[Rfam]
Shown here is a 285-nucleotide RNA from Pseudozyma flocculosa, a member of the family "Group I catalytic intron". The literature on the family includes a 1990 paper in Annu Rev Biochem by Cech, "Self-splicing of group I introns". The family's consensus secondary structure is taken from published work. Group I catalytic introns are large self-splicing ribozymes. They catalyse their own excision from mRNA, tRNA and rRNA precursors in a wide range of organisms. NCBI's taxonomy places the organism under Eukaryota, Dikarya, Ustilaginomycotina, Ustilaginomycetes, Pseudozyma. The family has 12 seed sequences and 5,602 matches in Rfam 15.1.
RNA sequence: GCAUAGCCGGGUUAUAUAGUAAUAUAUAACUUUCAUCUCGCUAUAUGCUGGAAACUCCUUAUAAAUAAACUAGCUAGAUCAAUAGAGCAAUUCUUUAUUGAAUCAUAAAUAUCUGUUUAUAUUGGACAAUCAGCAGGAAACUAAGUCUAGUCUAGUAAUAUAUCUAGACAGUAGGAUCCUCAGAGACUACAUGCGAGACAUCCUAUUCUAUAAAUCGAAUCAAUCCCCCUUAAGAGAUAAAUAUAGAAGGAUGAAGAUAUAGUCCGACCCUCUGGAAACAGAAGG
Numbered sequence: 001g002c003a004u005a006g007c008c009g010g011g012u013u014a015u016a017u018a019g020u021a022a023u024a025u026a027u028a029a030c031u032u033u034c035a036u037c038u039c040g041c042u043a044u045a046u047g048c049u050g051g052a053a054a055c056u057c058c059u060u061a062u063a064a065a066u067a068a069a070c071u072a073g074c075u076a077g078a079u080c081a082a083u084a085g086a087g088c089a090a091u092u093c094u095u096u097a098u099u100g101a102a103u104c105a106u107a108a109a110u111a112u113c114u115g116u117u118u119a120u121a122u123u124g125g126a127c128a129a130u131c132a133g134c135a136g137g138a139a140a141c142u143a144a145g146u147c148u149a150g151u152c153u154a155g156u157a158a159u160a161u162a163u164c165u166a167g168a169c170a171g172u173a174g175g176a177u178c179c180u181c182a183g184a185g186a187c188u189a190c191a192u193g194c195g196a197g198a199c200a201u202c203c204u205a206u207u208c209u210a211u212a213a214a215u216c217g218a219a220u221c222a223a224u225c226c227c228c229c230u231u232a233a234g235a236g237a238u239a240a241a242u243a244u245a246g247a248a249g250g251a252u253g254a255a256g257a258u259a260u261a262g263u264c265c266g267a268c269c270c271u272c273u274g275g276a277a278a279c280a281g282a283a284g285g
Stems, first nucleotide, its partner, number of pairs: 001007002036198004041193001046135006056126003136179002141174003151168005183265001185264005201251004207247003271282004